[Rfam]
The record is a 67-nucleotide RNA sequence from Ceyx cyanopectus, which matches "mir-103/107 microRNA precursor family" in Rfam. Rfam 15.1 lists 1,982 matches to the family in 645 species. It scores 83 bits against the family's covariance model. Gene Ontology terms of the family: miRNA-mediated post-transcriptional gene silencing and RISC complex. The literature on the family includes a 2001 paper in Cell by Ambros, "microRNAs: tiny regulators with great potential". This family consists of the mammalian microRNA (miRNA) precursors mir-103 and mir107. Animal miRNAs are transcribed as ~70nt precursors and subsequently processed by the Dicer enzyme to give a ~22nt product.

RNA sequence: CUUUGCUUUCAGCUUCUUUACAGUGUUGCCUUGUGGCAUGGAGUUCAAGCAGCAUUGUACAGGGCUA
Numbered sequence: 001c002u003u004u005g006c007u008u009u010c011a012g013c014u015u016c017u018u019u020a021c022a023g024u025g026u027u028g029c030c031u032u033g034u035g036g037c038a039u040g041g042a043g044u045u046c047a048a049g050c051a052g053c054a055u056u057g058u059a060c061a062g063g064g065c066u067a
Base pairs, nucleotide, nucleotide: 014064015063016062017061019059020058021057022056023055024054025053026052027051028050030049031048032047033046